[Rfam]
RNA sequence: GCCGGGAGGGCGACGGAUACAAGACCCAAAAGGGAAAGAAGUCCACCUAGCUUAUCCUAGGUUUCUAGCCUCCCGGCCGCCUUGC
Numbered sequence: 001g002c003c004g005g006g007a008g009g010g011c012g013a014c015g016g017a018u019a020c021a022a023g024a025c026c027c028a029a030a031a032g033g034g035a036a037a038g039a040a041g042u043c044c045a046c047c048u049a050g051c052u053u054a055u056c057c058u059a060g061g062u063u064u065c066u067a068g069c070c071u072c073c074c075g076g077c078c079g080c081c082u083u084g085c
Stems, first nucleotide, its partner, number of pairs: 001077009012043003025034003045062006
The family of this 85-nucleotide RNA from Mycoavidus cysteinexigens is "sRNA-Xcc1". Rfam classes the family as a small RNA. For this family Rfam cites "HrpG, a key hrp regulatory protein of Xanthomonas campestris pv. vesicatoria is homologous to two-component response regulators" (Wengelnik et al., Mol Plant Microbe Interact, 1996). Pairs were carried over by alignment from the consensus structure, which was predicted with RNAalifold.